[Rfam]
Source information: A member of the RNA family "Small nucleolar RNA snoR111" from Camphora micrantha, 167 nucleotides long. The base pairs follow the family's consensus structure, which was predicted with WAR. It scores 67 bits against the family's covariance model.
RNA sequence: AAAAUGAGAAAAGGGUGAUUGGGAAGAAUAUCUUCUCUCUCUCUCUCUCUCUCUCUCUCUGUGUCUCUUUCUUUCUGUGAUAAAUGGAGGGAAAUCCAAGUGUCGAGAUAUCGUUUCAGUCGCCCUUUUGUCUUUGGUUGGCGAUUUGAUUGUUGACUCGAUCACAU
Numbered sequence: 001a002a003a004a005u006g007a008g009a010a011a012a013g014g015g016u017g018a019u020u021g022g023g024a025a026g027a028a029u030a031u032c033u034u035c036u037c038u039c040u041c042u043c044u045c046u047c048u049c050u051c052u053c054u055c056u057c058u059c060u061g062u063g064u065c066u067c068u069u070u071c072u073u074u075c076u077g078u079g080a081u082a083a084a085u086g087g088a089g090g091g092a093a094a095u096c097c098a099a100g101u102g103u104c105g106a107g108a109u110a111u112c113g114u115u116u117c118a119g120u121c122g123c124c125c126u127u128u129u130g131u132c133u134u135u136g137g138u139u140g141g142c143g144a145u146u147u148g149a150u151u152g153u154u155g156a157c158u159c160g161a162u163c164a165c166a167u
Base pairs, nucleotide, nucleotide: 007076008075009074010073011072013069014068015067102163105159106158107157110150111149112148113147119145120144121143122142123141124140127137128136